This 193-nucleotide RNA sequence from Pseudomonas kuykendallii belongs to the Rfam family "RgsA sRNA". From the family's description: This small RNA (sRNA) was computationally identified in the genome of the opportunistic pathogen Pseudomonas aeruginosa and its expression verified by northern blot analysis. P16 sRNA appears to be conserved across several Pseudomonas species and Azotobacter vinelandii. In these species it is consistently located downstream of a predicted TatD deoxyribonuclease gene. Rfam classes the family as a small RNA.
RNA sequence: CAGCAAACGCAGCGGUAUUCCAAAUCUGUUUAAAAAACGAUCAGCAUUCGCUGGACGCCACGCCGCCCUGGUCAAUAAUCCAUUCACCGGAUGCGGCGUUUUCCCCCGAACGUCGAACGGCCAGGCGCCGUGGACCGCGCGUCCUGAUGCAACUCCUAAAUGGUCUUGACCCGGAUUCACCCCCAGAACCCGG
Dot-bracket structure: ......................................(((((...........................................(((..(..(.(((..........))).)..)))).((((((((.......).))).))))..............))))).....((((.(((.......))).))))

Source information: For this family Rfam cites "RpoS-dependent sRNA RgsA regulates Fis and AcpP in Pseudomonas aeruginosa" (Lu et al., Mol Microbiol, 2016). Its family is annotated with response to oxidative stress, response to hydrogen peroxide and sRNA-mediated gene silencing in the Gene Ontology.